The family of this 76-nucleotide sequence from Alligator mississippiensis is "Mammalian CPEB3 ribozyme".
The source organism's lineage runs through Eukaryota, Bilateria, Sauria, Archelosauria and Alligator.
RNA sequence: GGUUGCAAAUUCAAGGCCAUAGCAGAAGUGCUCAUGAUGUGGCCAGUCAGAUUCCAACAAGUCUGUGAGUUUUGCU
Numbered sequence: 001g002g003u004u005g006c007a008a009a010u011u012c013a014a015g016g017c018c019a020u021a022g023c024a025g026a027a028g029u030g031c032u033c034a035u036g037a038u039g040u041g042g043c044c045a046g047u048c049a050g051a052u053u054c055c056a057a058c059a060a061g062u063c064u065g066u067g068a069g070u071u072u073u074g075c076u
Stems, first nucleotide, its partner, number of pairs: 015044004021076007028040003048065006

It scores 40 bits against the family's covariance model. The base pairs follow the family's consensus structure, which is taken from published work. From the family's description: The mammalian CPEB3 ribozyme is a self cleaving RNA located in the second intron of the CPEB3 gene which belongs to a family of genes regulating messenger RNA polyadenylation. This ribozyme is highly conserved and found only in mammals.